The record is a 98-nucleotide RNA from Gossypium australe, which matches "Plastid-rps12 3UTR RNA" in Rfam. On this family, see Richter et al., Plant Commun 2023: "Retrograde signaling in plants: A critical review focusing on the GUN pathway and beyond". About the family: Plastid rpl20 is a non-coding RNA (ncRNA) recognised in plastids. It was found in the three prime untranslated region (3UTR) of rps12 gene, its 3UTR location sugest a role in transcript maduration. A search with the family's covariance model found it, with a score of 81 bits. Lineage of the source: Eukaryota > Euphyllophyta > Magnoliopsida > Malvoideae > Gossypium.
[Rfam]
RNA sequence: GAUUUCCCUUGGAGCUAAUUCAAUCUUAGAAUUUAAGGUGAGAAAAUAAUUUCCCCAUAGGUAGCAAAUGCUUAUCCAUUAAGCGGGGAAAAUCCUAU
Numbered sequence: 001g002a003u004u005u006c007c008c009u010u011g012g013a014g015c016u017a018a019u020u021c022a023a024u025c026u027u028a029g030a031a032u033u034u035a036a037g038g039u040g041a042g043a044a045a046a047u048a049a050u051u052u053c054c055c056c057a058u059a060g061g062u063a064g065c066a067a068a069u070g071c072u073u074a075u076c077c078a079u080u081a082a083g084c085g086g087g088g089a090a091a092a093u094c095c096u097a098u
Stems, first nucleotide, its partner, number of pairs: 009023004053088004057079002060076005
Dot-bracket structure: ........((((.......)))).............................((((((.(((((.......))))).)).....))))..........